Notes: Shown here is a 130-nucleotide RNA sequence from Caenorhabditis bovis, a member of the family "Caenorhabditis snoRNA ceN92". Rfam 15.1 lists 21 matches to the family in 11 species. NCBI's taxonomy places the organism under Eukaryota, Opisthokonta, Protostomia, Rhabditidae, Caenorhabditis. The match comes from Rfam's covariance-model search (79 bits). It is annotated as an H/ACA-box small nucleolar RNA. Pairs were carried over by alignment from the consensus structure, which was predicted with RNAalifold.
[Rfam]
RNA sequence: AUGCAUACUAAAAUUAAAACGGUUUAUCUAAAAUUGAGGUAAACCUUGUCUAGUGUGCUAGAUAAAUUGUUCCUCUGCCACACGGGUGCUGGUUUUGUGCUGUAUUCGUUCCAAAGAUGUUCAUACAAUA
Numbered sequence: 001a002u003g004c005a006u007a008c009u010a011a012a013a014u015u016a017a018a019a020c021g022g023u024u025u026a027u028c029u030a031a032a033a034u035u036g037a038g039g040u041a042a043a044c045c046u047u048g049u050c051u052a053g054u055g056u057g058c059u060a061g062a063u064a065a066a067u068u069g070u071u072c073c074u075c076u077g078c079c080a081c082a083c084g085g086g087u088g089c090u091g092g093u094u095u096u097g098u099g100c101u102g103u104a105u106u107c108g109u110u111c112c113a114a115a116g117a118u119g120u121u122c123a124u125a126c127a128a129u130a
Stems, first nucleotide, its partner, number of pairs: 003058006021045008029036002074117003082109002085106005091101003